[Rfam]
RNA sequence: AGUAUGUCCAGUCUAAUUCUGCAUCAUGUCACUUGGAUAUUGUUGCAGACUCGCUUUUGGACAAGAGCAAUGUUUGUCUUUUAUUAUCCUUGUGCUUGUGGCAACACUCAGCUCAAUGCACACGAGAAACGUAGAAGAACAAUC
Numbered sequence: 001a002g003u004a005u006g007u008c009c010a011g012u013c014u015a016a017u018u019c020u021g022c023a024u025c026a027u028g029u030c031a032c033u034u035g036g037a038u039a040u041u042g043u044u045g046c047a048g049a050c051u052c053g054c055u056u057u058u059g060g061a062c063a064a065g066a067g068c069a070a071u072g073u074u075u076g077u078c079u080u081u082u083a084u085u086a087u088c089c090u091u092g093u094g095c096u097u098g099u100g101g102c103a104a105c106a107c108u109c110a111g112c113u114c115a116a117u118g119c120a121c122a123c124g125a126g127a128a129a130c131g132u133a134g135a136a137g138a139a140c141a142a143u144c
Stems, first nucleotide, its partner, number of pairs: 005063006019048005025042002027039004077138008089126006

Small nucleolar RNA psi28S-1192: a 144-nucleotide RNA from Drosophila virilis. It is one of the family's seed sequences. NCBI's taxonomy places the organism under Eukaryota, Allotriocarida, Pterygota, Drosophilidae, Drosophila. Its family is annotated with nucleolus and RNA processing in the Gene Ontology. Rfam describes the family as follows. psi28S-1192 is a member of the H/ACA class of snoRNA. This family is responsible for guiding the modification of uridine 1192 to pseudouridine in Drosophila 28S rRNA.